The family of this 106-nucleotide sequence from Adineta ricciae is "Vault RNA".
The family has 73 seed sequences and 2,873 matches in Rfam 15.1.
This family of RNAs are found as part of the enigmatic vault ribonucleoprotein complex. The complex consists of a major vault protein (MVP), two minor vault proteins (VPARP and TEP1), and several small untranslated RNA molecules. It has been suggested that the vault complex is involved in drug resistance.
Taxonomically the source falls in Adineta (Eukaryota, Opisthokonta, Bilateria, Spiralia).
[Rfam]
RNA sequence: GGGUCGGCUCUGUUGUGUGGUUACUUCGAAUUUUUCAAAUUGAAACGACCGUUCCUCGCUUUGGUUGCAAACUGCAUCUCAACCACUGACGCUAACCGACUCUUUU
Numbered sequence: 001g002g003g004u005c006g007g008c009u010c011u012g013u014u015g016u017g018u019g020g021u022u023a024c025u026u027c028g029a030a031u032u033u034u035u036c037a038a039a040u041u042g043a044a045a046c047g048a049c050c051g052u053u054c055c056u057c058g059c060u061u062u063g064g065u066u067g068c069a070a071a072c073u074g075c076a077u078c079u080c081a082a083c084c085a086c087u088g089a090c091g092c093u094a095a096c097c098g099a100c101u102c103u104u105u106u
Stems, first nucleotide, its partner, number of pairs: 002101006012090004017086004025070002029066001

A search with the family's covariance model found it, with a score of 42 bits. The family's consensus secondary structure is taken from published work.